[Rfam]
RNA: mir-67 microRNA precursor family
Organism: Acanthosepion pharaonis
RNA sequence: CUUCUCUUUUCCUUGUUCAGUUUGGUUGUGGUGUUUCAAACUCAUCACAACCUGCUUGAAUGAGGAGAAGUGUGC
Numbered sequence: 001c002u003u004c005u006c007u008u009u010u011c012c013u014u015g016u017u018c019a020g021u022u023u024g025g026u027u028g029u030g031g032u033g034u035u036u037c038a039a040a041c042u043c044a045u046c047a048c049a050a051c052c053u054g055c056u057u058g059a060a061u062g063a064g065g066a067g068a069a070g071u072g073u074g075c
Base pairs, nucleotide, nucleotide: 008067009066010065012064013063014062015061016060017059018058019057020056024052025051027049028048029047030046031045032044033043